This 102-nucleotide RNA sequence from a Kofleriaceae bacterium belongs to the Rfam family "TPP riboswitch aptamer (THI element)". The base pairs follow the family's consensus structure, which is taken from published work. Rfam describes the family as follows. Vitamin B(1) in its active form thiamin pyrophosphate (TPP) is an essential coenzyme that is synthesised by coupling of pyrimidine and thiazole moieties in bacteria. The previously detected thiamin-regulatory element, thi box was extended, resulting in a new, highly conserved RNA secondary structure, the THI element, which is widely distributed in eubacteria and also occurs in some archaea. Analysis of operon structures identified a large number of new candidate thiamin-regulated genes, mostly transporters, in various prokaryotic organisms.
RNA sequence: CCGAGAUAACGGGGGAGCUUCCAUUCCGGAGGCUGAGAGGCGUAUGCGACCCCAGAACCUGAUCCGGGUAAUGCCGGCGUAGGAAGGCAGCCAGUGUCGAAA
Numbered sequence: 001c002c003g004a005g006a007u008a009a010c011g012g013g014g015g016a017g018c019u020u021c022c023a024u025u026c027c028g029g030a031g032g033c034u035g036a037g038a039g040g041c042g043u044a045u046g047c048g049a050c051c052c053c054a055g056a057a058c059c060u061g062a063u064c065c066g067g068g069u070a071a072u073g074c075c076g077g078c079g080u081a082g083g084a085a086g087g088c089a090g091c092c093a094g095u096g097u098c099g100a101a102a
Base pairs, nucleotide, nucleotide: 007089010086011053012052013051014050017033018032019031020030021029040047041046058083059082060081061080064077065076066075067074
Record summary: The organism belongs to Kofleriaceae, within Bacteria.